Description: A member of the RNA family "mir-451 microRNA precursor family" from Gouania willdenowi, 71 nucleotides long. It scores 77 bits against the family's covariance model. The literature on the family includes a 2009 paper in Blood by Pase et al., "miR-451 regulates zebrafish erythroid maturation in vivo via its target gata2". The family has 22 seed sequences and 658 matches in Rfam 15.1. Rfam links the family to the GO terms RISC complex and miRNA-mediated post-transcriptional gene silencing.

[Rfam]
RNA sequence: CAGAGGAUGGCCAUCAAACCGUUACCAUUACUGAGUUUAGUAAUGGUAAGGGUUCUCUGGCUGUCACUCGC
Dot-bracket structure: ......(((.(((...((((.((((((((((((....)))))))))))).))))...))).))).......